[Rfam]
Shown here is a 145-nucleotide RNA from Desulfitobacterium dehalogenans, a member of the family "c-di-AMP riboswitch aptamer (ydaO/yuaA leader)". Taxonomically the source falls in Desulfitobacterium (Bacteria, Bacillati, Bacillota, Desulfitobacteriaceae).
RNA sequence: UGUAGUCAAGGCUGAAUUUCCCAAAAAGGAAAACGGGGGAACCAUAAUGGGGGUGAAUCACUUUUUAGGAGUUAAACUUCUUGAAGUGACGGAAAGGUAUCAUUCCGAACCCGGCAGCUAACCUCGUAAGCGUGUGAACCGUUUU
Numbered sequence: 001u002g003u004a005g006u007c008a009a010g011g012c013u014g015a016a017u018u019u020c021c022c023a024a025a026a027a028g029g030a031a032a033a034c035g036g037g038g039g040a041a042c043c044a045u046a047a048u049g050g051g052g053g054u055g056a057a058u059c060a061c062u063u064u065u066u067a068g069g070a071g072u073u074a075a076a077c078u079u080c081u082u083g084a085a086g087u088g089a090c091g092g093a094a095a096g097g098u099a100u101c102a103u104u105c106c107g108a109a110c111c112c113g114g115c116a117g118c119u120a121a122c123c124u125c126g127u128a129a130g131c132g133u134g135u136g137a138a139c140c141g142u143u144u145u
Stems, first nucleotide, its partner, number of pairs: 011131003017032005033127006043050001051112003059088006091106004